[Rfam]
RNA sequence: CCCAUCGAGGGGCGCUGCGACCGUGCACAGAGACGGCCAGGCUCGAUGGACGCUUCCCGUUCCAACGGCGCCCGGAUGGC
Numbered sequence: 001c002c003c004a005u006c007g008a009g010g011g012g013c014g015c016u017g018c019g020a021c022c023g024u025g026c027a028c029a030g031a032g033a034c035g036g037c038c039a040g041g042c043u044c045g046a047u048g049g050a051c052g053c054u055u056c057c058c059g060u061u062c063c064a065a066c067g068g069c070g071c072c073c074g075g076a077u078g079g080c
Base pairs, nucleotide, nucleotide: 002049003048004047005046006045007044008043021036022035023034024033

The family of this 80-nucleotide RNA sequence from Rhodanobacter glycinis is "SAH (S-adenosyl-L-homocysteine) riboswitch aptamer".
Pairs were carried over by alignment from the consensus structure, which is taken from published work.
Lineage of the source: Bacteria > Pseudomonadota > Gammaproteobacteria > Rhodanobacteraceae > Rhodanobacter.
A reference for the family is Wang et al. (2008), "Riboswitches that sense S-adenosylhomocysteine and activate genes involved in coenzyme recycling", Mol Cell.